[Rfam]
RNA sequence: CGGCUAGCCCCGUCUGGAAGACUAGUGAUUUUGUUGUUGUCUUACUGUGCCCAACAACAAGUCCCAGUCUGCCGCAUGGUGCGGGCCA
Numbered sequence: 001c002g003g004c005u006a007g008c009c010c011c012g013u014c015u016g017g018a019a020g021a022c023u024a025g026u027g028a029u030u031u032u033g034u035u036g037u038u039g040u041c042u043u044a045c046u047g048u049g050c051c052c053a054a055c056a057a058c059a060a061g062u063c064c065c066a067g068u069c070u071g072c073c074g075c076a077u078g079g080u081g082c083g084g085g086c087c088a
Base pairs, nucleotide, nucleotide: 002087003086004085005084007082008081010079011078012077013076015074016073017072019070020069021068022067023066025065027063028062029061030060031059033058034057035056036055037054038053
RNA: mir-7 microRNA precursor family
Organism: Prolemur simus